Rfam assigns this 166-nucleotide sequence from Cricetulus griseus to the family "U1 spliceosomal RNA".
The family's consensus secondary structure is taken from published work.
About the family: U1 is a small nuclear RNA (snRNA) component of the spliceosome (involved in pre-mRNA splicing). Its 5' end forms complementary base pairs with the 5' splice junction, thus defining the 5' donor site of an intron. There are significant differences in sequence and secondary structure between metazoan and yeast U1 snRNAs, the latter being much longer (568 nucleotides as compared to 164 nucleotides in human). Nevertheless, secondary structure predictions suggest that all U1 snRNAs share a 'common core' consisting of helices I, II, the proximal region of III, and IV. This family does not contain the larger yeast sequences.
Gene Ontology terms of the family: U1 snRNP, pre-mRNA 5'-splice site binding and mRNA 5'-splice site recognition.
RNA sequence: AUACUUACCUGGCAAGGGAGAUACCAUGAUCACAAAGGUGGUUUUCCCAGGGAGAGAAGGUUUAGCCAUUUCAUUCGAGGUAUGCUCACCCCUGAGAUUUCCCUAAUUCAGGAAAUUUGACUGCAUAAUUUGUGGUAGUAGGGGACUGUGGUGGCACUCUUCCCAA
Numbered sequence: 001a002u003a004c005u006u007a008c009c010u011g012g013c014a015a016g017g018g019a020g021a022u023a024c025c026a027u028g029a030u031c032a033c034a035a036a037g038g039u040g041g042u043u044u045u046c047c048c049a050g051g052g053a054g055a056g057a058a059g060g061u062u063u064a065g066c067c068a069u070u071u072c073a074u075u076c077g078a079g080g081u082a083u084g085c086u087c088a089c090c091c092c093u094g095a096g097a098u099u100u101c102c103c104u105a106a107u108u109c110a111g112g113a114a115a116u117u118u119g120a121c122u123g124c125a126u127a128a129u130u131u132g133u134g135g136u137a138g139u140a141g142g143g144g145a146c147u148g149u150g151g152u153g154g155c156a157c158u159c160u161u162c163c164c165a166a
Stems, first nucleotide, its partner, number of pairs: 012124003016048006023042005049093004054089001059086003063082002066079001096118002098115003102112002141164005148157003